RNA: miR-430 microRNA precursor family
RNA sequence: AUUGAUACCCUAACAAAAGUACUGACCUGUAUAAAUCAUUUGGUAAGUGCUAUUUGUUGAGGUAGUUUUU
Numbered sequence: 001a002u003u004g005a006u007a008c009c010c011u012a013a014c015a016a017a018a019g020u021a022c023u024g025a026c027c028u029g030u031a032u033a034a035a036u037c038a039u040u041u042g043g044u045a046a047g048u049g050c051u052a053u054u055u056g057u058u059g060a061g062g063u064a065g066u067u068u069u070u
Stems, first nucleotide, its partner, number of pairs: 004066001006064004011059001013057005018051006025044003
Dot-bracket structure: ...(.((((.(.(((((((((((.(((..............))).)))))).))))).).)))).)....